[Rfam]
RNA sequence: CACGAAAAGGGCAAACUUGCCGAAAGGCAAGGACGCAAAGCCGCAGACCUAACGAACGUACCCGUUUCCAAGGUGGCUGGGCCGCCGAAG
Numbered sequence: 001c002a003c004g005a006a007a008a009g010g011g012c013a014a015a016c017u018u019g020c021c022g023a024a025a026g027g028c029a030a031g032g033a034c035g036c037a038a039a040g041c042c043g044c045a046g047a048c049c050u051a052a053c054g055a056a057c058g059u060a061c062c063c064g065u066u067u068c069c070a071a072g073g074u075g076g077c078u079g080g081g082c083c084g085c086c087g088a089a090g
Stems, first nucleotide, its partner, number of pairs: 001090001003087002011036002016031006034076001040082003044079003047074003
The record is a 90-nucleotide sequence from Paenibacillus flagellatus, which matches "c-di-GMP-I-GGC riboswitch aptamer" in Rfam.
The family's consensus secondary structure is taken from published work.